[Rfam]
RNA: Guanidine-II riboswitch aptamer (mini-ykkC)
Organism: Oxalicibacterium flavum
RNA sequence: UCAGGAGGACGACCUCCCCCAUAUCGGGAAUCAGCAUCCGGGACGACCCGG
Numbered sequence: 001u002c003a004g005g006a007g008g009a010c011g012a013c014c015u016c017c018c019c020c021a022u023a024u025c026g027g028g029a030a031u032c033a034g035c036a037u038c039c040g041g042g043a044c045g046a047c048c049c050g051g
Base pairs, nucleotide, nucleotide: 001021004018005016006015007014008013038051039050040049041048042047